[Rfam]
RNA sequence: ACACGAGAAAGGAGGUGGUCCGAAGUUGAAUAGCUACAGGACUCGUGAGGUGGCUGUCCGCUGACGGGCAGCGCACGGACCACCUGGGCAGGCUGACCGCGAGCGCGGUGCCCGCCCGAAAGUACGUGUGCCUGGCAGUGAAUACCAGGCAGCCACCGGCCCCCUGCCGCUUCCGGGUUCCGGUCCGACCCGGGCCCGAACGGCUGACGACGUUCGGGAGUCGCGCAGGGGGCUUCUUU
Numbered sequence: 001a002c003a004c005g006a007g008a009a010a011g012g013a014g015g016u017g018g019u020c021c022g023a024a025g026u027u028g029a030a031u032a033g034c035u036a037c038a039g040g041a042c043u044c045g046u047g048a049g050g051u052g053g054c055u056g057u058c059c060g061c062u063g064a065c066g067g068g069c070a071g072c073g074c075a076c077g078g079a080c081c082a083c084c085u086g087g088g089c090a091g092g093c094u095g096a097c098c099g100c101g102a103g104c105g106c107g108g109u110g111c112c113c114g115c116c117c118g119a120a121a122g123u124a125c126g127u128g129u130g131c132c133u134g135g136c137a138g139u140g141a142a143u144a145c146c147a148g149g150c151a152g153c154c155a156c157c158g159g160c161c162c163c164c165u166g167c168c169g170c171u172u173c174c175g176g177g178u179u180c181c182g183g184u185c186c187g188a189c190c191c192g193g194g195c196c197c198g199a200a201c202g203g204c205u206g207a208c209g210a211c212g213u214u215c216g217g218g219a220g221u222c223g224c225g226c227a228g229g230g231g232g233c234u235u236c237u238u239u
Stems, first nucleotide, its partner, number of pairs: 014058006059140005065134001067132004071127003158234010169224002173193006
The family of this 239-nucleotide sequence from Prauserella flavalba is "Actinobacteria sRNA Ms_IGR-5". The organism belongs to Prauserella, within Bacteria. The base pairs follow the family's consensus structure. It is annotated as a small RNA.